[Rfam]
This 89-nucleotide RNA from Streptomyces yokosukanensis belongs to the Rfam family "sodF sRNA". The organism belongs to Streptomyces, within Bacteria. It scores 78 bits against the family's covariance model. Pairs were carried over by alignment from the consensus structure. A reference for the family is Kim et al. (2014), "Inverse regulation of Fe- and Ni-containing SOD genes by a Fur family regulator Nur through small RNA processed from 3'UTR of the sodF mRNA", Nucleic Acids Res.

RNA sequence: GCGUCCUGCCUCGUGAUCGUCUUCUCACCCUUCACAGGCAGGGGCACAACGGAAGGCUCCCGGGAGGAAGUUCCUCGCGGGAGCCUUCC
Dot-bracket structure: ((..(((((((.((((..(.........)..))))))))))).)).....((((((((((((.(((.......))).))))))))))))